[Rfam]
RNA sequence: AUAUGCUUUCGGGGCAGGGUGAAAUUCCCGAUCGGCGGUAUAGUCCGCGAGCUGAUUAUCAGCAGGAACUGGUUGGAUUCCAGUACCGACAGUAAAGUCUGGAUGGAGAAAGUGGAA
Number, nucleotide and partner (000 for none) at each position: 001a000002u000003a000004u114005g113006c112007u111008u110009u109010c108011g000012g000013g000014g000015c000016a000017g029018g028019g027020u000021g000022a000023a000024a000025u000026u000027c019028c018029c017030g000031a098032u097033c088034g087035g048036c047037g046038g045039u000040a000041u000042a000043g086044u085045c038046c037047g036048c035049g000050a000051g063052c062053u061054g000055a000056u000057u000058a000059u000060c000061a053062g052063c051064a000065g000066g000067a000068a084069c083070u082071g081072g080073u000074u000075g000076g000077a000078u000079u000080c072081c071082a070083g069084u068085a044086c043087c034088g033089a000090c101091a100092g099093u000094a000095a000096a000097g032098u031099c092100u091101g090102g000103a000104u000105g000106g000107a000108g010109a009110a008111a007112g006113u005114g004115g000116a000117a000